RNA sequence: CGAGUUUUUCAUGCUUGUCUCUCGGGGUCACAAACGAGCUCCUGGUAGCUCCCAUGACACCCUGGGUAAAGUCCCCGGGCCUAGGAUAGAAAGUAUCAAGGCGUAAAAAGUUGUAUUUAUACAAUUCGCCUAUAUUUCGCGGUAAUUCGCCUUGCGUACUCCAAUGAAGAGGGACCUGUAAAAGGGUCUCGAAUUGUUGCGCUCGGUUGACUGCGGAAAUGUGCCAGAGAUUCCAUUAGAUAUAGGCAAGUGGGGGCGUGUCUUCAAACCACACGUCGCCCAUACGGAAUGGGGCUUACUUUGAGAAACUC
Numbered sequence: 001c002g003a004g005u006u007u008u009u010c011a012u013g014c015u016u017g018u019c020u021c022u023c024g025g026g027g028u029c030a031c032a033a034a035c036g037a038g039c040u041c042c043u044g045g046u047a048g049c050u051c052c053c054a055u056g057a058c059a060c061c062c063u064g065g066g067u068a069a070a071g072u073c074c075c076c077g078g079g080c081c082u083a084g085g086a087u088a089g090a091a092a093g094u095a096u097c098a099a100g101g102c103g104u105a106a107a108a109a110g111u112u113g114u115a116u117u118u119a120u121a122c123a124a125u126u127c128g129c130c131u132a133u134a135u136u137u138c139g140c141g142g143u144a145a146u147u148c149g150c151c152u153u154g155c156g157u158a159c160u161c162c163a164a165u166g167a168a169g170a171g172g173g174a175c176c177u178g179u180a181a182a183a184g185g186g187u188c189u190c191g192a193a194u195u196g197u198u199g200c201g202c203u204c205g206g207u208u209g210a211c212u213g214c215g216g217a218a219a220u221g222u223g224c225c226a227g228a229g230a231u232u233c234c235a236u237u238a239g240a241u242a243u244a245g246g247c248a249a250g251u252g253g254g255g256g257c258g259u260g261u262c263u264u265c266a267a268a269c270c271a272c273a274c275g276u277c278g279c280c281c282a283u284a285c286g287g288a289a290u291g292g293g294g295c296u297u298a299c300u301u302u303g304a305g306a307a308a309c310u311c
Stems, first nucleotide, its partner, number of pairs: 002311010014250006022065007036051005069297003073294004085097004135218001139214005149207003162196004172189006252281003256277001
Background
A member of the RNA family "RNase MRP" from Drosophila albomicans, 311 nucleotides long. The match comes from Rfam's covariance-model search (112 bits). About the family: RNase MRP is an enzymatically active ribonucleoprotein with two distinct roles in eukaryotes. In mitochondria it plays a direct role in the initiation of mitochondrial DNA replication. In the nucleus it is involved in precursor rRNA processing, where it cleaves the internal transcribed spacer 1 between 18S and 5.8S rRNAs. Its family is annotated with ribonuclease MRP activity, ribonuclease MRP complex and rRNA processing in the Gene Ontology. By type it is a ribozyme.